Burkholderia sRNA Bp1_Cand684_SIPHT: a 122-nucleotide RNA sequence from Caballeronia glathei. It is annotated as a small RNA. The organism belongs to Caballeronia, within Bacteria. Rfam 15.1 lists 176 matches to the family in 44 species. It scores 45 bits against the family's covariance model.
RNA sequence: AAGAAAGUGACUGCCGCCCCGCACAGGGGCGAGCUAAUAGACCGCGAACCAAGCAAAUUUCAUAGAGGCCGAAGCGCAUCAAACGGUGUAGAACCCCGAACCCCAAGCGCCAGCGGCCAAAU
Number, nucleotide and partner (000 for none) at each position: 001a000002a000003g000004a000005a000006a000007g000008u000009g000010a000011c091012u090013g089014c088015c031016g030017c029018c028019c027020c026021g000022c000023a000024c000025a000026g020027g019028g018029g017030c016031g015032a000033g000034c000035u000036a000037a000038u000039a000040g000041a000042c000043c000044g000045c000046g000047a000048a000049c000050c000051a000052a000053g000054c000055a000056a000057a000058u000059u000060u000061c000062a000063u000064a000065g000066a000067g000068g000069c000070c000071g000072a000073a000074g000075c000076g000077c000078a000079u000080c000081a000082a000083a000084c000085g000086g000087u000088g014089u013090a012091g011092a000093a000094c000095c000096c000097c000098g000099a000100a000101c000102c000103c000104c000105a000106a000107g114108c113109g000110c000111c000112a000113g108114c107115g000116g000117c000118c000119a000120a000121a000122u000